Record summary
Rfam assigns this 67-nucleotide RNA from Drosophila pseudoobscura to the family "mir-2518 microRNA precursor family". The source organism's lineage runs through Eukaryota, Hexapoda, Panorpida, Brachycera and Sophophora. On this family, see Berezikov et al., Nat Genet 2010: "Evolutionary flux of canonical microRNAs and mirtrons in Drosophila".
RNA sequence: ACGAACGGAUCGAACCUGUUGCGAGUCGAACUUGGCUCGAGCUCGAGCGGCGGGUCGAUCCGAGCCA
Numbered sequence: 001a002c003g004a005a006c007g008g009a010u011c012g013a014a015c016c017u018g019u020u021g022c023g024a025g026u027c028g029a030a031c032u033u034g035g036c037u038c039g040a041g042c043u044c045g046a047g048c049g050g051c052g053g054g055u056c057g058a059u060c061c062g063a064g065c066c067a
Base pairs, nucleotide, nucleotide: 003065006062007061008060009059010058011057012056013055015054016053017052018051019050020049021048022047026046027045028044029043031041032040033039